[Rfam]
RNA: DUF805b RNA
RNA sequence: GGAGCGGAUGCCGAAAAGCUUAUCUUAAAGAGUAGGCA
Numbered sequence: 001g002g003a004g005c006g007g008a009u010g011c012c013g014a015a016a017a018g019c020u021u022a023u024c025u026u027a028a029a030g031a032g033u034a035g036g037c038a
Stems, first nucleotide, its partner, number of pairs: 002021004010037003